Record summary
The family of this 110-nucleotide RNA from Phoenix dactylifera is "Small nucleolar RNA snoR97". A search with the family's covariance model found it, with a score of 56 bits. The source organism's lineage runs through Eukaryota, Embryophyta, Tracheophyta, Coryphoideae and Phoenix. Rfam links the family to the GO terms nucleolus and RNA processing.
[Rfam]
RNA sequence: UUUUCAAGGUGGCAUUGGACGUCAAAAGAGAACUCAUACAGUUGGUGUUGUCAUCACCUUCGUCUCUGCUAACCAAAUAGAGACUGGAGUUGAAUAGCAACACAAGAUAU
Number, nucleotide and partner (000 for none) at each position: 001u000002u000003u000004u000005c000006a000007a000008g000009g000010u000011g000012g000013c000014a000015u000016u000017g000018g000019a000020c000021g000022u000023c000024a000025a000026a000027a000028g000029a000030g000031a000032a000033c000034u000035c000036a000037u000038a000039c000040a000041g000042u000043u000044g000045g103046u102047g101048u100049u099050g098051u000052c000053a000054u000055c000056a091057c000058c089059u088060u087061c086062g000063u083064c082065u081066c080067u000068g000069c000070u000071a000072a000073c000074c000075a000076a000077a000078u000079a000080g066081a065082g064083a063084c000085u000086g061087g060088a059089g058090u000091u056092g000093a000094a000095u000096a000097g000098c050099a049100a048101c047102a046103c045104a000105a000106g000107a000108u000109a000110u000